Notes
This 131-nucleotide RNA from Budvicia aquatica belongs to the Rfam family "RtT RNA". A search with the family's covariance model found it, with a score of 120 bits. It is annotated as a cis-regulatory element. The base pairs follow the family's consensus structure, which is taken from published work. From the family's description: This family represents a bacterial cis-regulatory element known as RtT RNA. The exact function of RtT is unknown although it is thought that it may be involved in changing the cellular response in relation to amino acid starvation.

Nucleotides: 131
Stems, first nucleotide, its partner, number of pairs: 015122007023114001033094002036092001042089001044087002049059002066082006
Number, partner (000 for none) and nucleotide at each position: 001000a002000a003000g004000g005000u006000a007000c008000c009000c010000g011000a012000a013000a014000g015122g016121g017120g018119a019118a020117g021116g022000c023114u024000g025000a026000g027000a028000a029000u030000c031000u032000u033094c034093g035000a036092u037000g038000a039000a040000g041000g042089u043000u044087u045086g046000a047000g048000c049059c050058g051000a052000g053000c054000g055000a056000a057000g058050c059049g060000a061000g062000a063000c064000a065000a066082c067081g068080u069079u070078g071077c072000c073000a074000a075000a076000g077071g078070c079069a080068a081067c082066g083000g084000c085000c086045c087044g088000u089042a090000g091000g092036g093034u094033g095000a096000a097000u098000c099000g100000c101000g102000a103000a104000g105000c106000g107000a108000u109000g110000a111000a112000u113000a114023a115000u116021c117020c118019u119018u120017c121016c122015c123000c124000c125000a126000c127000c128000a129000c130000c131000a